[Rfam]
RNA sequence: AACAAAUGCACCAUUGAGUGCAGCGUUGAUGAUUUUAAUGUAUUAACAUUGUUAGCUGUUCUUCCAUUGAUUACUUAUAUUGAAAUCACAAUGCUGCACUCAAUUAUGUGUUUG
Numbered sequence: 001a002a003c004a005a006a007u008g009c010a011c012c013a014u015u016g017a018g019u020g021c022a023g024c025g026u027u028g029a030u031g032a033u034u035u036u037a038a039u040g041u042a043u044u045a046a047c048a049u050u051g052u053u054a055g056c057u058g059u060u061c062u063u064c065c066a067u068u069g070a071u072u073a074c075u076u077a078u079a080u081u082g083a084a085a086u087c088a089c090a091a092u093g094c095u096g097c098a099c100u101c102a103a104u105u106a107u108g109u110g111u112u113u114g
Base pairs, nucleotide, nucleotide: 006111007110008109009108010107013104014103015102016101017100018099019098020097021096022095023094024093025092026091027090028089030088031087032086